[Rfam]
RNA: SAM riboswitch aptamer (S box leader)
RNA sequence: GAUUUAUAAAGAAGUGGUAAGAGACAGGCUCAAUGACCCACUGGCAACCCUCAAAUGAGAAGGUGCCAAAUCCUGACCAAAAAGCAUGGUGCUUUUUUGGAAAUAUAAAUU
Dot-bracket structure: ((((((((....(((((...(((.[[[[)))......)))))((((.(((((....)))..))))))...(]]]].((((((((........))))))))..)))))))))